[Rfam]
This 127-nucleotide RNA sequence from Glycine max belongs to the Rfam family "MIR1520 microRNA precursor family". Rfam links the family to the GO terms RISC complex and miRNA-mediated post-transcriptional gene silencing.
RNA sequence: AAAGAAACAAACGUUGACGGUCAGAUGUCACGUUUUGAUUGGACGAUAAACAAAAAAAUAUUAAAAUUAAUUUUUGGACGUAUUUUUUCAUGUUCAAUCAGAACGUGAUAUGUGAUCGUUAACGUUU
Numbered sequence: 001a002a003a004g005a006a007a008c009a010a011a012c013g014u015u016g017a018c019g020g021u022c023a024g025a026u027g028u029c030a031c032g033u034u035u036u037g038a039u040u041g042g043a044c045g046a047u048a049a050a051c052a053a054a055a056a057a058a059u060a061u062u063a064a065a066a067u068u069a070a071u072u073u074u075u076g077g078a079c080g081u082a083u084u085u086u087u088u089c090a091u092g093u094u095c096a097a098u099c100a101g102a103a104c105g106u107g108a109u110a111u112g113u114g115a116u117c118g119u120u121a122a123c124g125u126u127u
Stems, first nucleotide, its partner, number of pairs: 020116004025111002029107003033103004038098005
Dot-bracket structure: ...................((((.((..(((.((((.(((((...................................................))))).)))).)))..)).))))...........
Source information: The organism belongs to Glycine subgen. Soja, within Eukaryota.